[Rfam]
RNA sequence: AAUUAAAUAGGCGAUGACGUUCGCCGUAUAAGUAAUUGGUAAUCAAUUUAAUGACGUCUACUAUAUA
Numbered sequence: 001a002a003u004u005a006a007a008u009a010g011g012c013g014a015u016g017a018c019g020u021u022c023g024c025c026g027u028a029u030a031a032g033u034a035a036u037u038g039g040u041a042a043u044c045a046a047u048u049u050a051a052u053g054a055c056g057u058c059u060a061c062u063a064u065a066u067a
Stems, first nucleotide, its partner, number of pairs: 010025004016058006034048004
RNA: Fluoride riboswitch aptamer (crcB RNA motif)
Organism: Lactobacillus psittaci